[Rfam]
RNA sequence: AUAAUGAGACUUCUGCAUGGUCAUGGAGGUGAGUGCAGCCUGUCAUAAGAAUGAGGGGAGCUGAGAUGCUAUGA
Numbered sequence: 001a002u003a004a005u006g007a008g009a010c011u012u013c014u015g016c017a018u019g020g021u022c023a024u025g026g027a028g029g030u031g032a033g034u035g036c037a038g039c040c041u042g043u044c045a046u047a048a049g050a051a052u053g054a055g056g057g058g059a060g061c062u063g064a065g066a067u068g069c070u071a072u073g074a
Stems, first nucleotide, its partner, number of pairs: 012071001013038006039058003043054003059070003

The family of this 74-nucleotide sequence from Firmicutes bacterium AF12-30 is "pemK RNA". Taxonomically the source falls in Bacillota (Bacteria, Bacillati).